[Rfam]
RNA sequence: CGUCAUCCGCGUGACUGGCGUAAGCCCCGGAUGACGGGGCCAGAUGGAAUACCAUCGGGAAGCGCGGACGCACCCCGUGCCGCACGCCUGGGCCAUCCAC
Numbered sequence: 001c002g003u004c005a006u007c008c009g010c011g012u013g014a015c016u017g018g019c020g021u022a023a024g025c026c027c028c029g030g031a032u033g034a035c036g037g038g039g040c041c042a043g044a045u046g047g048a049a050u051a052c053c054a055u056c057g058g059g060a061a062g063c064g065c066g067g068a069c070g071c072a073c074c075c076c077g078u079g080c081c082g083c084a085c086g087c088c089u090g091g092g093c094c095a096u097c098c099a100c
Stems, first nucleotide, its partner, number of pairs: 004070001006068007015059002017088005044055004079093003
ZMP/ZTP riboswitch aptamer (pfl RNA motif): a 100-nucleotide sequence from Nitrospirillum viridazoti. Taxonomically the source falls in Nitrospirillum viridazoti (Bacteria, Pseudomonadati, Alphaproteobacteria, Azospirillaceae).